Overview:
The record is a 176-nucleotide RNA sequence from Shimia abyssi, which matches "Ruegeria cis52 sRNA" in Rfam. The source organism's lineage runs through Bacteria, Pseudomonadota, Alphaproteobacteria, Rhodobacterales and Shimia. It is annotated as a small RNA.
[Rfam]
RNA sequence: CCGCAAAGCGUGUUUCAUCACGAUAUUGCGGAAGCUGACACCUUUGAGACGGGCGGUGCGGAUGUACUGAGCGGUCAUGACUUCGGCCAUCGAGGCGCGUGUCAUGCGCGCGAUGUAGCCCAUGCCGUAAAGUGAGAUUGUCAAAACGGGCAGGGUGAAGUUCUGGAAGGUGAUCC
Numbered sequence: 001c002c003g004c005a006a007a008g009c010g011u012g013u014u015u016c017a018u019c020a021c022g023a024u025a026u027u028g029c030g031g032a033a034g035c036u037g038a039c040a041c042c043u044u045u046g047a048g049a050c051g052g053g054c055g056g057u058g059c060g061g062a063u064g065u066a067c068u069g070a071g072c073g074g075u076c077a078u079g080a081c082u083u084c085g086g087c088c089a090u091c092g093a094g095g096c097g098c099g100u101g102u103c104a105u106g107c108g109c110g111c112g113a114u115g116u117a118g119c120c121c122a123u124g125c126c127g128u129a130a131a132g133u134g135a136g137a138u139u140g141u142c143a144a145a146a147c148g149g150g151c152a153g154g155g156u157g158a159a160g161u162u163c164u165g166g167a168a169g170g171u172g173a174u175c176c
Base pairs, nucleotide, nucleotide: 004140005139006138009134010133011132013130014129015127019124020123027122028121030119039110041108045104046103047102049100050099051098053096054074056072057071059069060068061067081095082094083093084092085091146174147172150171151170153164154163155162
A reference for the family is Rivers et al. (2016), "Experimental Identification of Small Non-Coding RNAs in the Model Marine Bacterium Ruegeria pomeroyi DSS-3", Front Microbiol.